[Rfam]
RNA sequence: ACGAUGUUCCGCUGUGAUUUAAUGAAGGAAUGACAAGAACAUCUG
Numbered sequence: 001a002c003g004a005u006g007u008u009c010c011g012c013u014g015u016g017a018u019u020u021a022a023u024g025a026a027g028g029a030a031u032g033a034c035a036a037g038a039a040c041a042u043c044u045g
Base pairs, nucleotide, nucleotide: 003043004042005041006040007039008038009037013035014034015033017031018030019029020028